[Rfam]
A member of the RNA family "U7 small nuclear RNA" from Pan paniscus, 63 nucleotides long.
The base pairs follow the family's consensus structure, which was predicted with PFOLD.
A reference for the family is Spycher et al. (1994), "3' end processing of mouse histone pre-mRNA: evidence for additional base-pairing between U7 snRNA and pre-mRNA", Nucleic Acids Res.
Rfam's curators write: Animal histone pre-mRNAs are spliced by a different mechanism than nuclear pre-mRNAs and self-splicing introns. This processing involves the U7 snRNP, which contains only one RNA species: U7. The 5' end of U7 RNA is thought to base-pair to a conserved spacer element downstream of the cleavage site in histone pre-mRNA. This family contains a number of annotated U7 pseudogenes.
RNA sequence: GAGUGUUACAGCUCUUACAGAAUUUGUCUAGCAGGUUUUCCAGUCUUUACCAGAAAUGCCCCC
Dot-bracket structure: .................................(((((((..((....))..)))).)))...